Rfam assigns this 140-nucleotide sequence from Callaeas wilsoni to the family "Small nucleolar RNA SNORA8". From the family's description: ACA8 is a member of the H/ACA class of snoRNA that guide the sites of modification of uridines to pseudouridines. NCBI's taxonomy places the organism under Eukaryota, Theropoda, Coelurosauria, Passeriformes, Callaeas. Gene Ontology terms of the family: RNA processing and nucleolus. Clan: SNORA8 clan.
RNA sequence: UGUGGUGUUACAGUACCUGCACCCAGCAGCCUUCUCCUGGUGAGAUGUUCGAAAAGCAGUGCUACAGCAGUGUAGCGUUUGGCAUCCUUGGUUUUCAUUCUGCUGCAUCCGUUAAACUUGGUAUUUUUGCUGAAACAGUC
Numbered sequence: 001u002g003u004g005g006u007g008u009u010a011c012a013g014u015a016c017c018u019g020c021a022c023c024c025a026g027c028a029g030c031c032u033u034c035u036c037c038u039g040g041u042g043a044g045a046u047g048u049u050c051g052a053a054a055a056g057c058a059g060u061g062c063u064a065c066a067g068c069a070g071u072g073u074a075g076c077g078u079u080u081g082g083c084a085u086c087c088u089u090g091g092u093u094u095u096c097a098u099u100c101u102g103c104u105g106c107a108u109c110c111g112u113u114a115a116a117c118u119u120g121g122u123a124u125u126u127u128u129g130c131u132g133a134a135a136c137a138g139u140c
Stems, first nucleotide, its partner, number of pairs: 002062003006058002018053001019048003023044001025041001027039003065129003069125003073120003081109002085105001